[Rfam]
RNA sequence: AUAUGUUACGUUGAUGGGCAAAAUGUUCAGCUGCUCUGAAUGGACUGAAUGAAAAUAGCCUUUCUGAACAUCU
Numbered sequence: 001a002u003a004u005g006u007u008a009c010g011u012u013g014a015u016g017g018g019c020a021a022a023a024u025g026u027u028c029a030g031c032u033g034c035u036c037u038g039a040a041u042g043g044a045c046u047g048a049a050u051g052a053a054a055a056u057a058g059c060c061u062u063u064c065u066g067a068a069c070a071u072c073u
Stems, first nucleotide, its partner, number of pairs: 003071004